[Rfam]
RNA sequence: CUUACUGGGAGUUCCUUGGCAUUCUGUCCACCUCCUUGCCGAUCUUGCAGAAAGCCUCUCAAAUCUGUUUGUGUUUUUUUGGAGGUGGGCAUACUGCCAAUGGAGCUGUGUAGG
Numbered sequence: 001c002u003u004a005c006u007g008g009g010a011g012u013u014c015c016u017u018g019g020c021a022u023u024c025u026g027u028c029c030a031c032c033u034c035c036u037u038g039c040c041g042a043u044c045u046u047g048c049a050g051a052a053a054g055c056c057u058c059u060c061a062a063a064u065c066u067g068u069u070u071g072u073g074u075u076u077u078u079u080u081g082g083a084g085g086u087g088g089g090c091a092u093a094c095u096g097c098c099a100a101u102g103g104a105g106c107u108g109u110g111u112a113g114g
Base pairs, nucleotide, nucleotide: 013104016100017099018098019097020096021095025091026090027089028088029087030086031085032084033083034082035081

About this RNA: MIR394 microRNA precursor family: a 114-nucleotide sequence from Panicum hallii. Gene Ontology terms of the family: miRNA-mediated post-transcriptional gene silencing and RISC complex. The organism belongs to Panicum hallii, within Eukaryota. The family has 19 seed sequences and 724 matches in Rfam 15.1.